[Rfam]
Nucleotides: 079
Stems, first nucleotide, its partner, number of pairs: 001079004006074004011069002016064015032049004
Number, partner (000 for none) and nucleotide at each position: 001079a002078g003077c004076c005000g006074c007073g008072g009071g010000c011069c012068u013000u014000u015000u016064a017063a018062a019061g020060c021059a022058c023057c024056g025055c026054c027053c028052g029051a030050g031000c032049c033048c034047c035046g036000c037000u038000g039000c040000c041000a042000g043000a044000g045000c046035c047034g048033g049032g050030c051029u052028c053027g054026g055025g056024c057023g058022g059021u060020g061019c062018u063017u064016u065000a066000a067000a068012a069011g070000c071009c072008c073007c074006g075000g076004g077003g078002c079001u

Rfam assigns this 79-nucleotide RNA sequence from Chelydra serpentina to the family "Epstein-Barr virus stable intronic sequence RNA 2".
On this family, see Moss et al., RNA Biol 2014: "RNA families in Epstein-Barr virus".
The family has 2 seed sequences and 171 matches in Rfam 15.1.
Taxonomically the source falls in Chelydra (Eukaryota, Opisthokonta, Metazoa, Testudinata).
By type it is a non-coding RNA gene.
The pairing is the family consensus, mapped onto this sequence.